[Rfam]
RNA sequence: GUUAAAUUGAAGGGGGACUCUGACGAGUUGAGAAGGUUAUGCCUGACCCUUUGAACCUGUUAGUUCAGACUAUCGUAGGGAUCAAUUGACCAUAUUUU
Numbered sequence: 001g002u003u004a005a006a007u008u009g010a011a012g013g014g015g016g017a018c019u020c021u022g023a024c025g026a027g028u029u030g031a032g033a034a035g036g037u038u039a040u041g042c043c044u045g046a047c048c049c050u051u052u053g054a055a056c057c058u059g060u061u062a063g064u065u066c067a068g069a070c071u072a073u074c075g076u077a078g079g080g081a082u083c084a085a086u087u088g089a090c091c092a093u094a095u096u097u098u
Stems, first nucleotide, its partner, number of pairs: 006086005011050004016044001017028004035043003056079004061072003

Record summary: The family of this 98-nucleotide RNA sequence from Alkalibacterium pelagium is "TPP riboswitch aptamer (THI element)". The organism belongs to Alkalibacterium, within Bacteria. For this family Rfam cites "Comparative genomics of thiamin biosynthesis in procaryotes. New genes and regulatory mechanisms" (Rodionov et al., J Biol Chem, 2002).